[Rfam]
RNA: Small nucleolar RNA SNORD24
Organism: Varanus komodoensis
RNA sequence: UGCAGAUGAUGCUAGCAAAUAUUUGCUAUCUGAGCUUUCUUGAUGACUCCCAACCACCAAGAUCUCUGAUGCA
Numbered sequence: 001u002g003c004a005g006a007u008g009a010u011g012c013u014a015g016c017a018a019a020u021a022u023u024u025g026c027u028a029u030c031u032g033a034g035c036u037u038u039c040u041u042g043a044u045g046a047c048u049c050c051c052a053a054c055c056a057c058c059a060a061g062a063u064c065u066c067u068g069a070u071g072c073a
Base pairs, nucleotide, nucleotide: 001073002072003071004070
Dot-bracket structure: ((((.................................................................))))